[Rfam]
RNA: Archaeal large subunit ribosomal RNA, nucleotides 624 to 871
Organism: Candidatus Altarchaeales archaeon WOR_SM1_SCG
RNA sequence: GAGUGUAAGCAUGCGGUGAGGUGAAAACCGUAGCGAAAGCAAAUAUCCGCAUUGCGCAAGCAAGAGGGAUGUGGUAUGAUAAGUGCCAUAAAUCGCAUGAUUACGACCUGAAGCCAAUCGAUCUAACCCGGGGCAGGAUGAAGUCCAUUAACUAAUGGAUGGAGGUCCGCUAGAGGUUCUGGGCUCAACCCGUUCUCGUGACCCCGGGAUAGGAGUGAAAUGCUAAUCGAGUUUGGCAAUAGCAGGUU
Numbered sequence: 001g002a003g004u005g006u007a008a009g010c011a012u013g014c015g016g017u018g019a020g021g022u023g024a025a026a027a028c029c030g031u032a033g034c035g036a037a038a039g040c041a042a043a044u045a046u047c048c049g050c051a052u053u054g055c056g057c058a059a060g061c062a063a064g065a066g067g068g069a070u071g072u073g074g075u076a077u078g079a080u081a082a083g084u085g086c087c088a089u090a091a092a093u094c095g096c097a098u099g100a101u102u103a104c105g106a107c108c109u110g111a112a113g114c115c116a117a118u119c120g121a122u123c124u125a126a127c128c129c130g131g132g133g134c135a136g137g138a139u140g141a142a143g144u145c146c147a148u149u150a151a152c153u154a155a156u157g158g159a160u161g162g163a164g165g166u167c168c169g170c171u172a173g174a175g176g177u178u179c180u181g182g183g184c185u186c187a188a189c190c191c192g193u194u195c196u197c198g199u200g201a202c203c204c205c206g207g208g209a210u211a212g213g214a215g216u217g218a219a220a221u222g223c224u225a226a227u228c229g230a231g232u233u234u235g236g237c238a239a240u241a242g243c244a245g246g247u248u
Stems, first nucleotide, its partner, number of pairs: 005104004010099008020029003033040002045070004052063004073087004107246002110243001114236004119231001123212003127208007134200001136168004143160007173197004179192001181191002214224003